[Rfam]
RNA sequence: CUGAAUCUCACUGCAGCUGCUGGACGCUGCACAAGAUUAGAUAUUUUAGAACUCUUGUGCGUGUGACAGCGGCUAUUGUGGGUAUUCUUAUUCAACAAU
Numbered sequence: 001c002u003g004a005a006u007c008u009c010a011c012u013g014c015a016g017c018u019g020c021u022g023g024a025c026g027c028u029g030c031a032c033a034a035g036a037u038u039a040g041a042u043a044u045u046u047u048a049g050a051a052c053u054c055u056u057g058u059g060c061g062u063g064u065g066a067c068a069g070c071g072g073c074u075a076u077u078g079u080g081g082g083u084a085u086u087c088u089u090a091u092u093c094a095a096c097a098a099u
Base pairs, nucleotide, nucleotide: 005085006084007082008081009080010079011078015074016073017072018071019070020069021068022067025063026062028061029060030059031058032057033056035054036053
This 99-nucleotide RNA sequence from Tribolium castaneum belongs to the Rfam family "mir-210 microRNA precursor family". The family's consensus secondary structure was predicted with WAR. Rfam links the family to the GO terms miRNA-mediated post-transcriptional gene silencing and RISC complex.